[Rfam]
RNA sequence: AUACAUUUGCAUCUAGCGUAGGAAGCACGCAAAGUUACGCCUUUAUAGAUAUGAUGCGUGAGAGCUGUAAGGAAUGCGUUGGAGCUCAAACUCUGUAAAAUCCA
Numbered sequence: 001a002u003a004c005a006u007u008u009g010c011a012u013c014u015a016g017c018g019u020a021g022g023a024a025g026c027a028c029g030c031a032a033a034g035u036u037a038c039g040c041c042u043u044u045a046u047a048g049a050u051a052u053g054a055u056g057c058g059u060g061a062g063a064g065c066u067g068u069a070a071g072g073a074a075u076g077c078g079u080u081g082g083a084g085c086u087c088a089a090a091c092u093c094u095g096u097a098a099a100a101u102c103c104a
Stems, first nucleotide, its partner, number of pairs: 016030004035063002038060003044056003047052001081094004
RNA: Heliobacter pylori small RNA HPnc0580
Organism: Helicobacter pylori